[Rfam]
RNA sequence: AAAGUAAUAUCGGAACAAACGGCAGCAUAUAUUAUAUUGCUGUGCAGUCGGGCCUUCGGCAGCAGAUCAAGAUCUGCGGGACAGCU
Dot-bracket structure: ..........(.(..(..((.((((((..........))))))...))...(((...))).((((((....))))))..).).)..
Numbered sequence: 001a002a003a004g005u006a007a008u009a010u011c012g013g014a015a016c017a018a019a020c021g022g023c024a025g026c027a028u029a030u031a032u033u034a035u036a037u038u039g040c041u042g043u044g045c046a047g048u049c050g051g052g053c054c055u056u057c058g059g060c061a062g063c064a065g066a067u068c069a070a071g072a073u074c075u076g077c078g079g080g081a082c083a084g085c086u
Stems, first nucleotide, its partner, number of pairs: 011084001013082001016080001019048002022043006052060003062077006
Notes: Shown here is an 86-nucleotide RNA sequence from Ruminococcaceae bacterium FB2012, a member of the family "NiCo (Nickel/Cobalt) riboswitch aptamer". For this family Rfam cites "Bacterial riboswitches cooperatively bind Ni(2+) or Co(2+) ions and control expression of heavy metal transporters" (Furukawa et al., Mol Cell, 2015). The source organism's lineage runs through Bacteria, Bacillati, Clostridia, Eubacteriales and Oscillospiraceae. The family's consensus secondary structure is taken from published work. A search with the family's covariance model found it, with a score of 45 bits. Clan: NiCo_riboswitches.